[Rfam]
RNA: int-alpA RNA
Organism: Thiothrix eikelboomii
RNA sequence: CCAGUGCCUAGCCCGACGGGGCGAAAAGCCGGAUUCCUUUCCCUUCGGCUGGCACUGGUUCUUAUUUUUAGGG
Number, nucleotide and partner (000 for none) at each position: 001c058002c057003a056004g055005u054006g053007c052008c051009u000010a000011g022012c021013c020014c019015g000016a000017c000018g000019g014020g013021g012022c011023g000024a000025a000026a000027a000028g049029c048030c047031g046032g045033a000034u000035u000036c073037c072038u071039u070040u000041c000042c000043c000044u000045u032046c031047g030048g029049c028050u000051g008052g007053c006054a005055c004056u003057g002058g001059u000060u000061c000062u000063u000064a000065u000066u000067u000068u000069u000070a039071g038072g037073g036